[Rfam]
RNA sequence: CGGUGAGGUAGAGGCGCAGGCAAAAUAAUUAGUUAGCAGGAGAAUGACAACGAUGAGUGCUGAUGAAAGGUUUGUUUGCCGAAGCGUAAUAAGGGUCAAACUUAUUAUAGCUGGUAUGUUCUUGAAUAAGGGGCAUACUGUCAUGCAGCAAGUGUGCGUGGAGAACUACUGAUCGA
Numbered sequence: 001c002g003g004u005g006a007g008g009u010a011g012a013g014g015c016g017c018a019g020g021c022a023a024a025a026u027a028a029u030u031a032g033u034u035a036g037c038a039g040g041a042g043a044a045u046g047a048c049a050a051c052g053a054u055g056a057g058u059g060c061u062g063a064u065g066a067a068a069g070g071u072u073u074g075u076u077u078g079c080c081g082a083a084g085c086g087u088a089a090u091a092a093g094g095g096u097c098a099a100a101c102u103u104a105u106u107a108u109a110g111c112u113g114g115u116a117u118g119u120u121c122u123u124g125a126a127u128a129a130g131g132g133g134c135a136u137a138c139u140g141u142c143a144u145g146c147a148g149c150a151a152g153u154g155u156g157c158g159u160g161g162a163g164a165a166c167u168a169c170u171g172a173u174c175g176a
Stems, first nucleotide, its partner, number of pairs: 007170005016079009032064007083112003087107007113139011141161007
The family of this 176-nucleotide RNA sequence from Oceanobacillus piezotolerans is "Lysine riboswitch aptamer". The match comes from Rfam's covariance-model search (108 bits).